[Rfam]
A member of the RNA family "Purine riboswitch aptamer" from Neobacillus rhizophilus, 102 nucleotides long.

RNA sequence: AAAUGAAGAAAUCUAUUUUCUUGUAUACAAUUAGAAAUUUGGUCUAAUUGUCUCUACCGGGUUGCCGUAAACUACCUGACUACAAGAAUAAUCUGAAGCUAU
Numbered sequence: 001a002a003a004u005g006a007a008g009a010a011a012u013c014u015a016u017u018u019u020c021u022u023g024u025a026u027a028c029a030a031u032u033a034g035a036a037a038u039u040u041g042g043u044c045u046a047a048u049u050g051u052c053u054c055u056a057c058c059g060g061g062u063u064g065c066c067g068u069a070a071a072c073u074a075c076c077u078g079a080c081u082a083c084a085a086g087a088a089u090a091a092u093c094u095g096a097a098g099c100u101a102u
Stems, first nucleotide, its partner, number of pairs: 018088008029049007058078005064072001
Dot-bracket structure: .................((((((((...(((((((.......)))))))........(((((.(.......).)))))..))))))))..............
Background:
Pairs were carried over by alignment from the consensus structure, which is taken from published work. Lineage of the source: Bacteria > Bacillati > Bacilli > Caryophanales > Neobacillus. A search with the family's covariance model found it, with a score of 84 bits.